[Rfam]
This 113-nucleotide sequence from Rhizobium gallicum belongs to the Rfam family "Alphaproteobacterial ar15".
RNA sequence: AGCUGAUGCACUUCGGUGGCUUCUCUCCCAGUGCCACCGCAUUAGCUGUUCCCCUCUGGAGGUUUUUUGACCUUCACACCUUAAGGGCCCCGAGCUUUCGGCGGCCCUUUUUU
Numbered sequence: 001a002g003c004u005g006a007u008g009c010a011c012u013u014c015g016g017u018g019g020c021u022u023c024u025c026u027c028c029c030a031g032u033g034c035c036a037c038c039g040c041a042u043u044a045g046c047u048g049u050u051c052c053c054c055u056c057u058g059g060a061g062g063u064u065u066u067u068u069g070a071c072c073u074u075c076a077c078a079c080c081u082u083a084a085g086g087g088c089c090c091c092g093a094g095c096u097u098u099c100g101g102c103g104g105c106c107c108u109u110u111u112u113u
Stems, first nucleotide, its partner, number of pairs: 001047005007041003016037004057076007084108006090101004
Dot-bracket structure: (((((.(((......((((..............)))).))).))))).........(((((((......))))))).......((((((((((....)))).)))))).....
It scores 109 bits against the family's covariance model. Pairs were carried over by alignment from the consensus structure. The family is grouped with related families in Rfam's "suhB sRNA clan".